RNA sequence: GGAUCGGGAGGCAGCCAUUGGGACGGCAGCCAUGAAUUGAUCCGAACCCGCUGUCUCGUAUGGGCAAGGCGCCGUAGCCCGACGCCGCUCUUG
Numbered sequence: 001g002g003a004u005c006g007g008g009a010g011g012c013a014g015c016c017a018u019u020g021g022g023a024c025g026g027c028a029g030c031c032a033u034g035a036a037u038u039g040a041u042c043c044g045a046a047c048c049c050g051c052u053g054u055c056u057c058g059u060a061u062g063g064g065c066a067a068g069g070c071g072c073c074g075u076a077g078c079c080c081g082a083c084g085c086c087g088c089u090c091u092u093g
Base pairs, nucleotide, nucleotide: 001043002042003041004040005039010031011030012029014027015026016025065093066092067091068090069089070087071086073084074083
RNA: Rhodo-rpoB RNA